[Rfam]
RNA: Small nucleolar RNA SNORD82
RNA sequence: AGCACGAAUGAUGAGUGACACAGGGACUUAAUACUGACACCUGCUGAUCCACACAAUGUGCUGAUGUGC
Numbered sequence: 001a002g003c004a005c006g007a008a009u010g011a012u013g014a015g016u017g018a019c020a021c022a023g024g025g026a027c028u029u030a031a032u033a034c035u036g037a038c039a040c041c042u043g044c045u046g047a048u049c050c051a052c053a054c055a056a057u058g059u060g061c062u063g064a065u066g067u068g069c
Base pairs, nucleotide, nucleotide: 002069003068004067005066006065